[Rfam]
RNA: mir-204 microRNA precursor family
RNA sequence: CUGUGGCCAGUGAGUUUCCCUUUCUCAUCCUAUGCCUGGGAAUAUUCAUAAGGCGAGGAGGACAAAGGAUCACUCAAUUGUCACCAGA
Dot-bracket structure: ..................((((..(..((((..((((.............)))).))))..)..))))....................